About this RNA:
A member of the RNA family "Saccharopolyspora sRNA 350" from Streptomyces caatingaensis, 503 nucleotides long.
RNA sequence: CGGGCGGUGAACUCCCAGGACCCCGGCUCCUCCCCGAGGACCUGGCCGCCGAUGAACCCCCCGUCGGCGACGAGACCGAGACGGGUCUCCUCGCCGUACGGGCCGGUGCCGACCCGCUCGACCUUGCCGUGCGCGAUCAGAUAGACGUGGUCGGCCGGCCGGCCCGCCUCCGCGAUCACCUGGCCGGGGCCGAACUCGCGCUGCUCGAAGCGCCCGGCCAGCGCCUGCAGGGCGUCGGGCUCCUCGAAGCCGUGCAGCAGCGGGAGUUCGCCCAGCUCGGCCGGGAUCACGCGGACGGCGGCCCCUUCCUGGACGAAGGUCACCCGCCCGUCGCCGACCGUGUACGCCAGGCGCCGGUUGACGCGGUACGUACCACCGCUCACCUCCACCCAGGGCAGGGUCUUCAGCAGCUUCCGCGAACUGAUGCCCUGCAUCUGCGGAACGGUCUUGGUGGUCGUCGCCAGGUUCCGCGCGGCGGCGAUGCCCAGGCUCAACUGGGUCCG
Numbered sequence: 001c002g003g004g005c006g007g008u009g010a011a012c013u014c015c016c017a018g019g020a021c022c023c024c025g026g027c028u029c030c031u032c033c034c035c036g037a038g039g040a041c042c043u044g045g046c047c048g049c050c051g052a053u054g055a056a057c058c059c060c061c062c063g064u065c066g067g068c069g070a071c072g073a074g075a076c077c078g079a080g081a082c083g084g085g086u087c088u089c090c091u092c093g094c095c096g097u098a099c100g101g102g103c104c105g106g107u108g109c110c111g112a113c114c115c116g117c118u119c120g121a122c123c124u125u126g127c128c129g130u131g132c133g134c135g136a137u138c139a140g141a142u143a144g145a146c147g148u149g150g151u152c153g154g155c156c157g158g159c160c161g162g163c164c165c166g167c168c169u170c171c172g173c174g175a176u177c178a179c180c181u182g183g184c185c186g187g188g189g190c191c192g193a194a195c196u197c198g199c200g201c202u203g204c205u206c207g208a209a210g211c212g213c214c215c216g217g218c219c220a221g222c223g224c225c226u227g228c229a230g231g232g233c234g235u236c237g238g239g240c241u242c243c244u245c246g247a248a249g250c251c252g253u254g255c256a257g258c259a260g261c262g263g264g265a266g267u268u269c270g271c272c273c274a275g276c277u278c279g280g281c282c283g284g285g286a287u288c289a290c291g292c293g294g295a296c297g298g299c300g301g302c303c304c305c306u307u308c309c310u311g312g313a314c315g316a317a318g319g320u321c322a323c324c325c326g327c328c329c330g331u332c333g334c335c336g337a338c339c340g341u342g343u344a345c346g347c348c349a350g351g352c353g354c355c356g357g358u359u360g361a362c363g364c365g366g367u368a369c370g371u372a373c374c375a376c377c378g379c380u381c382a383c384c385u386c387c388a389c390c391c392a393g394g395g396c397a398g399g400g401u402c403u404u405c406a407g408c409a410g411c412u413u414c415c416g417c418g419a420a421c422u423g424a425u426g427c428c429c430u431g432c433a434u435c436u437g438c439g440g441a442a443c444g445g446u447c448u449u450g451g452u453g454g455u456c457g458u459c460g461c462c463a464g465g466u467u468c469c470g471c472g473c474g475g476c477g478g479c480g481a482u483g484c485c486c487a488g489g490c491u492c493a494a495c496u497g498g499g500u501c502c503g
Stems, first nucleotide, its partner, number of pairs: 006390004011385001018328002025325002028319002031316002035312001037310004045302007054233001057230001060227001063224002065111004074103001076102002081097003085094002118221001120219001122217002126213002130209001131206001133204003140197001143196002150191001155187006162177001165174003236291002241286003245283001249281003254278001256277003260271003329342003351379003356374002361371003391431007400422001403418001405416001407415001437476002440473001443470003447465006477502002484499005

Gene Ontology term of the family: regulation of secondary metabolite biosynthetic process. It scores 137 bits against the family's covariance model. Taxonomically the source falls in Streptomyces (Bacteria, Actinomycetota, Kitasatosporales, Streptomycetaceae). For this family Rfam cites "Prediction and characterization of small non-coding RNAs related to secondary metabolites in Saccharopolyspora erythraea" (Liu et al., PLoS One, 2013).